[Rfam]
The record is a 75-nucleotide RNA sequence from Thermocoleostomius sinensis, which matches "Glutamine riboswitch aptamer (glnA leader)" in Rfam. Its family is annotated with glutamine binding in the Gene Ontology. The base pairs follow the family's consensus structure, which is taken from published work. The source organism's lineage runs through Bacteria, Bacillati, Oculatellaceae, Thermocoleostomius and Thermocoleostomius sinensis. For this family Rfam cites "Bacterial aptamers that selectively bind glutamine" (Ames and Breaker, RNA Biol, 2011).
RNA sequence: AUCGUUCAUCCUUCAAUCAUCCAAGAAGUGCAGAUUGAAAGGACGGAAGUAGGGAAGUCCCCGAAGGAACGCGCC
Numbered sequence: 001a002u003c004g005u006u007c008a009u010c011c012u013u014c015a016a017u018c019a020u021c022c023a024a025g026a027a028g029u030g031c032a033g034a035u036u037g038a039a040a041g042g043a044c045g046g047a048a049g050u051a052g053g054g055a056a057g058u059c060c061c062c063g064a065a066g067g068a069a070c071g072c073g074c075c
Stems, first nucleotide, its partner, number of pairs: 003071005009043005046072001052062003